[Rfam]
RNA sequence: UAUUUCACAAAGGAGUGCUUCCGCUGAGAUCGCAUUUGCGAAAUCCUAAAUACCUGAUCUUGUUAAUACAAGCGUAGGGAUUGUGAUCUUGAUAUUC
Numbered sequence: 001u002a003u004u005u006c007a008c009a010a011a012g013g014a015g016u017g018c019u020u021c022c023g024c025u026g027a028g029a030u031c032g033c034a035u036u037u038g039c040g041a042a043a044u045c046c047u048a049a050a051u052a053c054c055u056g057a058u059c060u061u062g063u064u065a066a067u068a069c070a071a072g073c074g075u076a077g078g079g080a081u082u083g084u085g086a087u088c089u090u091g092a093u094a095u096u097c
Stems, first nucleotide, its partner, number of pairs: 006085005011047004016041001017024002031040003053078004059072004

A member of the RNA family "TPP riboswitch aptamer (THI element)" from Streptococcus uberis, 97 nucleotides long.
It scores 71 bits against the family's covariance model.
The organism belongs to Streptococcus uberis, within Bacteria.
From the family's description: Vitamin B(1) in its active form thiamin pyrophosphate (TPP) is an essential coenzyme that is synthesised by coupling of pyrimidine and thiazole moieties in bacteria.